[Rfam]
Shown here is a 100-nucleotide RNA sequence from Phaeovulum veldkampii, a member of the family "Glycine riboswitch aptamer".
RNA sequence: GCGUCAGGAUCGGGAGAAUCCGGCGGGGCACUGCCCCCAUCGGUGCCGAAGGAGCAACCGCCCCGGUAAACUCUCAGGCGCAAGGGACCGUUCUGACAAA
Numbered sequence: 001g002c003g004u005c006a007g008g009a010u011c012g013g014g015a016g017a018a019u020c021c022g023g024c025g026g027g028g029c030a031c032u033g034c035c036c037c038c039a040u041c042g043g044u045g046c047c048g049a050a051g052g053a054g055c056a057a058c059c060g061c062c063c064c065g066g067u068a069a070a071c072u073c074u075c076a077g078g079c080g081c082a083a084g085g086g087a088c089c090g091u092u093c094u095g096a097c098a099a100a
Base pairs, nucleotide, nucleotide: 007094008093009092011090012089013088020043021042022041023040045079046078047077048075049074052073053072054071058066059065